[Rfam]
RNA sequence: CAGCGGGGAAAGAAGACCCUAUUAAACUUAACUCUAGUUUAAUAUUAUAAAAAGACAUAGGAAGUAUAGAAUAGGUAGGAGCUUCGGCGCUAGUAAAAUACUACUACUCCUAUUAUUUUUUUACUUAUUUAAUAAAGCGGGGCUAGAUUUACGUCUAACUUCUAGUUUUAAGGUCCUUCGCGGGCCGACCCGGGUUAAAGAUAUUAUUAGGUAGGGAGUUUAGCUAGGGCGGCAUAUCUAUUAAACUAUAACGCAGGUAUCCUAAGGGGGGCUCAUAGAGAACAAAAAUCUCCAGUAGAAUAAAAGGGUAAAAGUCCCCUUAAUUUUGAUUUUUAGUAUAAAUACAAACUAUAAAAAUGUAGCCUAUCGAUCCUUUAGUCCCUCGAAAUUUGAGGCUAGAGGUACCAAAAAAGUUACCACAGGGAUAACUAGCUUAUAGUAGCUAAGCGUUUAUAGCGACGUCGCUUUUUAAUCCUUUAAUAUCGGCUCUUCCUAUUAUACUAAAACAGAAUUCGGUAAGCGUUAGAUUGUUCACCCACUAAUAGGGAACGUAAGCUAGGUUUAGACCGUUAUAAGAUAGGUUAGUUUUACCCUACUA
Numbered sequence: 001c002a003g004c005g006g007g008g009a010a011a012g013a014a015g016a017c018c019c020u021a022u023u024a025a026a027c028u029u030a031a032c033u034c035u036a037g038u039u040u041a042a043u044a045u046u047a048u049a050a051a052a053a054g055a056c057a058u059a060g061g062a063a064g065u066a067u068a069g070a071a072u073a074g075g076u077a078g079g080a081g082c083u084u085c086g087g088c089g090c091u092a093g094u095a096a097a098a099u100a101c102u103a104c105u106a107c108u109c110c111u112a113u114u115a116u117u118u119u120u121u122u123a124c125u126u127a128u129u130u131a132a133u134a135a136a137g138c139g140g141g142g143c144u145a146g147a148u149u150u151a152c153g154u155c156u157a158a159c160u161u162c163u164a165g166u167u168u169u170a171a172g173g174u175c176c177u178u179c180g181c182g183g184g185c186c187g188a189c190c191c192g193g194g195u196u197a198a199a200g201a202u203a204u205u206a207u208u209a210g211g212u213a214g215g216g217a218g219u220u221u222a223g224c225u226a227g228g229g230c231g232g233c234a235u236a237u238c239u240a241u242u243a244a245a246c247u248a249u250a251a252c253g254c255a256g257g258u259a260u261c262c263u264a265a266g267g268g269g270g271g272c273u274c275a276u277a278g279a280g281a282a283c284a285a286a287a288a289u290c291u292c293c294a295g296u297a298g299a300a301u302a303a304a305a306g307g308g309u310a311a312a313a314g315u316c317c318c319c320u321u322a323a324u325u326u327u328g329a330u331u332u333u334u335a336g337u338a339u340a341a342a343u344a345c346a347a348a349c350u351a352u353a354a355a356a357a358u359g360u361a362g363c364c365u366a367u368c369g370a371u372c373c374u375u376u377a378g379u380c381c382c383u384c385g386a387a388a389u390u391u392g393a394g395g396c397u398a399g400a401g402g403u404a405c406c407a408a409a410a411a412a413g414u415u416a417c418c419a420c421a422g423g424g425a426u427a428a429c430u431a432g433c434u435u436a437u438a439g440u441a442g443c444u445a446a447g448c449g450u451u452u453a454u455a456g457c458g459a460c461g462u463c464g465c466u467u468u469u470u471a472a473u474c475c476u477u478u479a480a481u482a483u484c485g486g487c488u489c490u491u492c493c494u495a496u497u498a499u500a501c502u503a504a505a506a507c508a509g510a511a512u513u514c515g516g517u518a519a520g521c522g523u524u525a526g527a528u529u530g531u532u533c534a535c536c537c538a539c540u541a542a543u544a545g546g547g548a549a550c551g552u553a554a555g556c557u558a559g560g561u562u563u564a565g566a567c568c569g570u571u572a573u574a575a576g577a578u579a580g581g582u583u584a585g586u587u588u589u590a591c592c593c594u595a596c597u598a
Base pairs, nucleotide, nucleotide: 002597003596006594007593008592010589011588018423019422020421023419025415026414027413028412029411031219032218033217034216038211039210040209041208042207043206044205048123049122050121051120052119053118054117055116057113058112059111060110061109062108074105075104076103077102078101081088082087128199129198130197131196132195138192139191140190141189146155147154172186173185174184175183176182222235223233224232225231236258237257238256239255241253261362267319268318269317270316271315272314273299274298276294278292279291280290281289300309301308324348325347326346329343330342331341332340350359351358352357373401374400375399376398377397378396381395382394383393384392432473434471436470438466439465440464442462443461447457448456484559485557486556487555488554489551490548491547492546493545494544497522500517501516502515504513505512524538526536528534565583566582567581568580569578570577571576
The family of this 598-nucleotide part of an RNA from Colletotrichum abscissum is "Eukaryotic large subunit ribosomal RNA". It scores 2258 bits against the family's covariance model. The family's consensus secondary structure is taken from published work.